[Rfam]
RNA: Small nucleolar RNA SNORA38
Organism: Cavia porcellus
RNA sequence: CCUUCCUACAACGGUGUGCUUUUGGUUCCUUGUCUUUGCACACAUAAGAAUUGGAGGCAAAAAAAAAAAAUAAUUGUGGAUUUGGGGAUAUCUGGGACCAGCUUGCUCCCUGCAGGCUCAAGAUCAACCAUCUCACAUAA
Number, nucleotide and partner (000 for none) at each position: 001c000002c057003u056004u055005c054006c053007u000008a000009c000010a000011a000012c000013g000014g000015u044016g043017u042018g041019c000020u000021u038022u000023u000024g030025g029026u000027u000028c000029c025030u024031u000032g000033u000034c000035u000036u000037u000038g021039c000040a000041c018042a017043c016044a015045u000046a000047a000048g000049a000050a000051u000052u000053g006054g005055a004056g003057g002058c000059a000060a000061a000062a000063a000064a000065a000066a000067a000068a000069a000070a000071u000072a000073a000074u000075u000076g000077u000078g133079g132080a131081u000082u130083u000084g000085g000086g000087g000088a000089u000090a000091u000092c000093u000094g000095g000096g000097a000098c000099c000100a118101g117102c116103u115104u114105g113106c112107u000108c000109c000110c000111u000112g106113c105114a104115g103116g102117c101118u100119c000120a000121a000122g000123a000124u000125c000126a000127a000128c000129c000130a082131u080132c079133u078134c000135a000136c000137a000138u000139a000140a000